RNA: Hepatitis C virus stem-loop SL2531 and SL2549AU
Organism: Orthohepacivirus hominis
RNA sequence: UGCUGGCGGACGCUCGCGUCUGCGCGUGCUUGUGGAUGGUGCUGCUGGUGGCGCAGGUGGAGGCAGCUUUGG
Numbered sequence: 001u002g003c004u005g006g007c008g009g010a011c012g013c014u015c016g017c018g019u020c021u022g023c024g025c026g027u028g029c030u031u032g033u034g035g036a037u038g039g040u041g042c043u044g045c046u047g048g049u050g051g052c053g054c055a056g057g058u059g060g061a062g063g064c065a066g067c068u069u070u071g072g
Stems, first nucleotide, its partner, number of pairs: 006023007024067002027065005034058001037055002